[Rfam]
The record is a 137-nucleotide RNA sequence from Cavia porcellus, which matches "Small nucleolar RNA SNORA77" in Rfam.
On this family, see Schattner et al., RNA 2006: "A computational screen for mammalian pseudouridylation guide H/ACA RNAs".
About the family: ACA63 (SNORA77) is a member of the H/ACA class of snoRNAs that guide the sites of modification of uridines to pseudouridines. This snoRNA was identified by computational screening and its expression in mouse experimentally verified by Northern blot and primer extension analysis. ACA63 is proposed to guide the pseudouridylation of 18S rRNA U814.
Rfam classes the family as an H/ACA-box small nucleolar RNA.
Lineage of the source: Eukaryota > Dipnotetrapodomorpha > Mammalia > Theria > Cavia.
The family has 19 seed sequences and 843 matches in Rfam 15.1.
Its family is annotated with RNA processing and nucleolus in the Gene Ontology.

RNA sequence: GCAGACUCACUAAGCACUUGACUGCGGUCUCCAAGGUGAUUUUCCUCCAAAGUGCUUUUUGUCUGCCAGAGAACCAUCCCCGGGAUAUAGGCACCCUUGACCAAUCAGGGGUGAUGUAACUUUUUGAGGUCAUAGAA
Dot-bracket structure: ((((((.......((((((..............................)))))).....))))))...........(.(.(((.((((..(((((............))))).)))).)..)).).).........